The record is an 87-nucleotide RNA from Solanum commersonii, which matches "MIR8024 microRNA precursor family" in Rfam. Taxonomically the source falls in Solanum (Eukaryota, Viridiplantae, Solanales, Solanoideae). The match comes from Rfam's covariance-model search (59 bits). Gene Ontology terms of the family: RISC complex and miRNA-mediated post-transcriptional gene silencing.
[Rfam]
RNA sequence: UUAGAGAUUUUGAAGAUAUCUACUUGUAAACUUGAAGAAUUUGAAUAUUUCAACUUGCACACUUAAAGAGUUUUGAAGAUUUCAAGU
Numbered sequence: 001u002u003a004g005a006g007a008u009u010u011u012g013a014a015g016a017u018a019u020c021u022a023c024u025u026g027u028a029a030a031c032u033u034g035a036a037g038a039a040u041u042u043g044a045a046u047a048u049u050u051c052a053a054c055u056u057g058c059a060c061a062c063u064u065a066a067a068g069a070g071u072u073u074u075g076a077a078g079a080u081u082u083c084a085a086g087u
Stems, first nucleotide, its partner, number of pairs: 001085002004082003009077006017069001019067001021065001025059004032053006